[Rfam]
RNA sequence: UUGCACCUGUCGUAUGACUAAGGUCUCACUAGUUUUGAUUGUGAGCCCAUUGGAUAUGGUGCAUAAAAAGAAAGCUGUCUCUGUACAGCAGCGGCCAGACAACCGUAGGUAUGGAUCCACAGAUAAGUGGUUCAAAAUACCACUUGUCUACUGAUUCCGUCCCACAAUC
Numbered sequence: 001u002u003g004c005a006c007c008u009g010u011c012g013u014a015u016g017a018c019u020a021a022g023g024u025c026u027c028a029c030u031a032g033u034u035u036u037g038a039u040u041g042u043g044a045g046c047c048c049a050u051u052g053g054a055u056a057u058g059g060u061g062c063a064u065a066a067a068a069a070g071a072a073a074g075c076u077g078u079c080u081c082u083g084u085a086c087a088g089c090a091g092c093g094g095c096c097a098g099a100c101a102a103c104c105g106u107a108g109g110u111a112u113g114g115a116u117c118c119a120c121a122g123a124u125a126a127g128u129g130g131u132u133c134a135a136a137a138u139a140c141c142a143c144u145u146g147u148c149u150a151c152u153g154a155u156u157c158c159g160u161c162c163c164a165c166a167a168u169c
Base pairs, nucleotide, nucleotide: 002063003062004061005060006059009055010054011053023047025045026044027043028042029041108163109162111160112159113158114157115156125145126144127143128142129141130140
The family of this 169-nucleotide RNA from Colocasia esculenta is "small nucleolar RNA snoR143". The literature on the family includes a 2009 paper in Nucleic Acids Res by Chen and Wu, "Mining small RNA sequencing data: a new approach to identify small nucleolar RNAs in Arabidopsis". NCBI's taxonomy places the organism under Eukaryota, Euphyllophyta, Spermatophyta, Liliopsida, Colocasia. It scores 82 bits against the family's covariance model.